[Rfam]
Rfam assigns this 115-nucleotide RNA from Brachypodium distachyon to the family "MIR5070 microRNA precursor family". Rfam links the family to the GO terms miRNA-mediated post-transcriptional gene silencing and RISC complex. Lineage of the source: Eukaryota > Tracheophyta > Euphyllophyta > Stipodae > Brachypodium.

RNA sequence: GAGGGUACCCUUUGACCCUCCUUAGUUUAACCAAAUGUACUAAAAUUUUACAAUGACACAACUUUUUGGAAAACUAAUUCAUUUGUUUAAACUAAGGAGGGUCAGAGGAUACCUG
Numbered sequence: 001g002a003g004g005g006u007a008c009c010c011u012u013u014g015a016c017c018c019u020c021c022u023u024a025g026u027u028u029a030a031c032c033a034a035a036u037g038u039a040c041u042a043a044a045a046u047u048u049u050a051c052a053a054u055g056a057c058a059c060a061a062c063u064u065u066u067u068g069g070a071a072a073a074c075u076a077a078u079u080c081a082u083u084u085g086u087u088u089a090a091a092c093u094a095a096g097g098a099g100g101g102u103c104a105g106a107g108g109a110u111a112c113c114u115g
Base pairs, nucleotide, nucleotide: 002114003113005112006111007110009108010107011106012105013104014103015102016101017100018099019098020097021096022095023094024093025092026091027090028089029088030087032085033084034083035082036081037080039078041076042075